This 179-nucleotide RNA from Astyanax mexicanus belongs to the Rfam family "Small nucleolar RNA SNORA81". Gene Ontology terms of the family: nucleolus and RNA processing. It is annotated as an H/ACA-box small nucleolar RNA. A search with the family's covariance model found it, with a score of 111 bits.
RNA sequence: UCUUCCAUACAAAAGAACUGUGCUGAAAUUACAGGAUCUAGGUUCUCCUGGUUCGUGUGAUAAUGCUAGCAGAGUAAAAACAUGGAAGAAGAGCAAGUGCCCUACACCGGAAAUGAAAUGUGGUCGGACCUCUUUCUUAAUGUCCAGUGGCCCCUGUUUCAAGGUUUAGUGCAACAGUU
Numbered sequence: 001u002c003u004u005c006c007a008u009a010c011a012a013a014a015g016a017a018c019u020g021u022g023c024u025g026a027a028a029u030u031a032c033a034g035g036a037u038c039u040a041g042g043u044u045c046u047c048c049u050g051g052u053u054c055g056u057g058u059g060a061u062a063a064u065g066c067u068a069g070c071a072g073a074g075u076a077a078a079a080a081c082a083u084g085g086a087a088g089a090a091g092a093g094c095a096a097g098u099g100c101c102c103u104a105c106a107c108c109g110g111a112a113a114u115g116a117a118a119u120g121u122g123g124u125c126g127g128a129c130c131u132c133u134u135u136c137u138u139a140a141u142g143u144c145c146a147g148u149g150g151c152c153c154c155u156g157u158u159u160c161a162a163g164g165u166u167u168a169g170u171g172c173a174a175c176a177g178u179u
Base pairs, nucleotide, nucleotide: 018074019073021071022070023069024068025067028064029063030062031061035054038051039050040049041048042047098173099172100171102169103168104167106165121150123148126145127144128143